The family of this 64-nucleotide sequence from Rattus norvegicus is "U7 small nuclear RNA".
Lineage of the source: Eukaryota > Dipnotetrapodomorpha > Amniota > Muridae > Rattus.
The family's consensus secondary structure was predicted with PFOLD.

RNA sequence: GAGUUAUUACAGCUCUAUUAGAAUUUGUCUAGCAAGUUUUCUGACAUUGGUCACAGAAGCAAGU
Numbered sequence: 001g002a003g004u005u006a007u008u009a010c011a012g013c014u015c016u017a018u019u020a021g022a023a024u025u026u027g028u029c030u031a032g033c034a035a036g037u038u039u040u041c042u043g044a045c046a047u048u049g050g051u052c053a054c055a056g057a058a059g060c061a062a063g064u
Stems, first nucleotide, its partner, number of pairs: 036060002038057003042053004